[Rfam]
RNA sequence: GCCCUGUGGUUGCUGGAGGCUGUUGUGCUGGUACAGUUCUCCAGUGGAUACAGUGGGCCAGAGCAAUCCUGUGAUUUAUGCAUGGGAGCUGUUUGUCCUCAGCAGCUUCCAUAGCCCGGUCAUUGGUACAUGG
Numbered sequence: 001g002c003c004c005u006g007u008g009g010u011u012g013c014u015g016g017a018g019g020c021u022g023u024u025g026u027g028c029u030g031g032u033a034c035a036g037u038u039c040u041c042c043a044g045u046g047g048a049u050a051c052a053g054u055g056g057g058c059c060a061g062a063g064c065a066a067u068c069c070u071g072u073g074a075u076u077u078a079u080g081c082a083u084g085g086g087a088g089c090u091g092u093u094u095g096u097c098c099u100c101a102g103c104a105g106c107u108u109c110c111a112u113a114g115c116c117c118g119g120u121c122a123u124u125g126g127u128a129c130a131u132g133g
Base pairs, nucleotide, nucleotide: 001058002057003056004055007050008049010047011046012045013044014043015042016041017040019037020036021035022034023033069125071123072122073121074120075119076118080115081114082112083111084110085109087107088106089105090104091103092102093101
Dot-bracket structure: ((((..((.((((((((.(((((.........)))))..)))))))).))....))))..........(.((((((...((((((.(((((((.......))))))).)))).))..)))))).)........